[Rfam]
RNA sequence: CAUUCCCUGUCGAUCCGAAGGCUUGCGUUCCUACGUGAGCUACUUAUGUAGGUGAGAUGGGGCUUU
Numbered sequence: 001c002a003u004u005c006c007c008u009g010u011c012g013a014u015c016c017g018a019a020g021g022c023u024u025g026c027g028u029u030c031c032u033a034c035g036u037g038a039g040c041u042a043c044u045u046a047u048g049u050a051g052g053u054g055a056g057a058u059g060g061g062g063c064u065u066u
Base pairs, nucleotide, nucleotide: 002065005062006061007060008059009058010057011056015052016051020041021040022039023038024037025036026035027034028033
DUF3800-VIII RNA: a 66-nucleotide RNA sequence from Bacillus licheniformis. Bacteroidetes, Cyanobacteria, Firmicutes, Planctomycetes (1 example), Proteobacteria, Tenericutes (1 example).